[Rfam]
RNA sequence: CAAGGUGAAGACGAACACAUUAAAAAUCGUCACAUUCCAGUGUGGUCAGUGCCCACACAUUUAAACAAAAACUGAUUUAAAAGAAUGUUUAGGAGGAAUAGCA
Numbered sequence: 001c002a003a004g005g006u007g008a009a010g011a012c013g014a015a016c017a018c019a020u021u022a023a024a025a026a027u028c029g030u031c032a033c034a035u036u037c038c039a040g041u042g043u044g045g046u047c048a049g050u051g052c053c054c055a056c057a058c059a060u061u062u063a064a065a066c067a068a069a070a071a072c073u074g075a076u077u078u079a080a081a082a083g084a085a086u087g088u089u090u091a092g093g094a095g096g097a098a099u100a101g102c103a
Base pairs, nucleotide, nucleotide: 005018006017007016010031011030012029013028033087034086035085036084037083040058041057042056043055044054
Dot-bracket structure: ....[[[..((((..]]].........)))).(((((..(((((.........)))))........................)))))................